Shown here is a 346-nucleotide RNA from Sedimentitalea nanhaiensis, a member of the family "Alphaproteobacteria transfer-messenger RNA". NCBI's taxonomy places the organism under Bacteria, Pseudomonadota, Alphaproteobacteria, Paracoccaceae, Sedimentitalea. Rfam classes the family as a non-coding RNA gene.
RNA sequence: GCGAUUGCAAACGCAGCAGCAGCCGCCUAUAUUGCAUUUGUCCUUCGGGACUAUGGACAUAAACGCGCUCGUCAUAAGCGGAUCGGACCCGGGGGCGGUACCCGGCGGCUCCACCACCAUCCUUCAUUUGGGGAUCAUGGGGCCGAAAUAGGAUCGACGAACGUCUAAAGGGGUUAGCUUUGUCUCGGCGGGGUGCCACCGUAUCGGCCCGAAAAGUACAAUUGCAAAUGACAAUCGUGCUCCGGUUGCCGUUGCUGCGUAAGCAGUAACCAAACCGAAACUUAAGCCCUUGCGCCUAGCAGCGCAAGGCGGGGUUCGCAGGCACCUGGCAACAGAAGCCUGCACU
Numbered sequence: 001g002c003g004a005u006u007g008c009a010a011a012c013g014c015a016g017c018a019g020c021a022g023c024c025g026c027c028u029a030u031a032u033u034g035c036a037u038u039u040g041u042c043c044u045u046c047g048g049g050a051c052u053a054u055g056g057a058c059a060u061a062a063a064c065g066c067g068c069u070c071g072u073c074a075u076a077a078g079c080g081g082a083u084c085g086g087a088c089c090c091g092g093g094g095g096c097g098g099u100a101c102c103c104g105g106c107g108g109c110u111c112c113a114c115c116a117c118c119a120u121c122c123u124u125c126a127u128u129u130g131g132g133g134a135u136c137a138u139g140g141g142g143c144c145g146a147a148a149u150a151g152g153a154u155c156g157a158c159g160a161a162c163g164u165c166u167a168a169a170g171g172g173g174u175u176a177g178c179u180u181u182g183u184c185u186c187g188g189c190g191g192g193g194u195g196c197c198a199c200c201g202u203a204u205c206g207g208c209c210c211g212a213a214a215a216g217u218a219c220a221a222u223u224g225c226a227a228a229u230g231a232c233a234a235u236c237g238u239g240c241u242c243c244g245g246u247u248g249c250c251g252u253u254g255c256u257g258c259g260u261a262a263g264c265a266g267u268a269a270c271c272a273a274a275c276c277g278a279a280a281c282u283u284a285a286g287c288c289c290u291u292g293c294g295c296c297u298a299g300c301a302g303c304g305c306a307a308g309g310c311g312g313g314g315u316u317c318g319c320a321g322g323c324a325c326c327u328g329g330c331a332a333c334a335g336a337a338g339c340c341u342g343c344a345c346u
Base pairs, nucleotide, nucleotide: 040051041050042049043048055185056184057183058182059181065178066177067174068173069172070171079163080162083160084159085158089105090104091103092102093101106145107144108143109142110141111140112139186201187200188199192210193209195208196207197206312327313326314325315324318343319342320341321340322339323338